[Rfam]
This 125-nucleotide RNA sequence from Merluccius polli belongs to the Rfam family "Small nucleolar RNA SNORA65". Pairs were carried over by alignment from the consensus structure, which was predicted with RNAalifold. U65 belongs to the H/ACA class of snoRNAs which are thought to guide the sites of modification of uridines to pseudouridines. Its family is annotated with nucleolus and RNA processing in the Gene Ontology. The family is grouped with related families in Rfam's "SNORA65 clan". Lineage of the source: Eukaryota > Osteoglossocephalai > Neoteleostei > Ctenosquamata > Merluccius. By type it is an H/ACA-box small nucleolar RNA.
RNA sequence: CCUGCCACUAUGCCUGUCUGUUAGUGACUGAGUAUAAUCCAGUGGAGGCUAAGAUGGACCCAGCUCUAGGAAGCAGUGCUGCCCAGUAUAGUGGGCACCCCUGUGCCGAAAGGCCUGGUACAAAU
Numbered sequence: 001c002c003u004g005c006c007a008c009u010a011u012g013c014c015u016g017u018c019u020g021u022u023a024g025u026g027a028c029u030g031a032g033u034a035u036a037a038u039c040c041a042g043u044g045g046a047g048g049c050u051a052a053g054a055u056g057g058a059c060c061c062a063g064c065u066c067u068a069g070g071a072a073g074c075a076g077u078g079c080u081g082c083c084c085a086g087u088a089u090a091g092u093g094g095g096c097a098c099c100c101c102u103g104u105g106c107c108g109a110a111a112g113g114c115c116u117g118g119u120a121c122a123a124a125u
Stems, first nucleotide, its partner, number of pairs: 005045005018032002021026001060118004064113002067110001069107002074103003078099001082095003